[Rfam]
RNA sequence: GGAGGCGGCGACGCCCCCCCGACUUGAGACCGGCCUAGCCGGUCUGUCGCCUCCACGCCUCAUUCUCGAUGAUGCCACUUCCCUCGGGCGGAUCUCUGAUCCGCCC
Numbered sequence: 001g002g003a004g005g006c007g008g009c010g011a012c013g014c015c016c017c018c019c020c021g022a023c024u025u026g027a028g029a030c031c032g033g034c035c036u037a038g039c040c041g042g043u044c045u046g047u048c049g050c051c052u053c054c055a056c057g058c059c060u061c062a063u064u065c066u067c068g069a070u071g072a073u074g075c076c077a078c079u080u081c082c083c084u085c086g087g088g089c090g091g092a093u094c095u096c097u098g099a100u101c102c103g104c105c106c
Stems, first nucleotide, its partner, number of pairs: 001054010012021002028044007086106009
Description
Shown here is a 106-nucleotide RNA from Brevundimonas goettingensis, a member of the family "Cauldobacter sRNA CC3552". The base pairs follow the family's consensus structure, which was predicted with RNAalifold.